Record summary:
Small nucleolar RNA snoR99: a 102-nucleotide RNA sequence from Colocasia esculenta. NCBI's taxonomy places the organism under Eukaryota, Embryophyta, Tracheophyta, Euphyllophyta, Colocasia. A reference for the family is Marker et al. (2002), "Experimental RNomics: identification of 140 candidates for small non-messenger RNAs in the plant Arabidopsis thaliana", Curr Biol. The family's consensus secondary structure was predicted with WAR. The family's RNA type in Rfam is H/ACA-box small nucleolar RNA.

RNA sequence: GUGCCUUGAGGAAUGAUCAAGUCCCUUAUAUGAAGUCCUUCUGGGUUCACUUUGUCAGCUUCUGUUCAUAUUUCAAGCUGAUCAUUUACAGAUGGGAUAUUU
Numbered sequence: 001g002u003g004c005c006u007u008g009a010g011g012a013a014u015g016a017u018c019a020a021g022u023c024c025c026u027u028a029u030a031u032g033a034a035g036u037c038c039u040u041c042u043g044g045g046u047u048c049a050c051u052u053u054g055u056c057a058g059c060u061u062c063u064g065u066u067c068a069u070a071u072u073u074c075a076a077g078c079u080g081a082u083c084a085u086u087u088a089c090a091g092a093u094g095g096g097a098u099a100u101u102u
Base pairs, nucleotide, nucleotide: 036096037095038094040092041091054082055081056080057079058078059077060076061075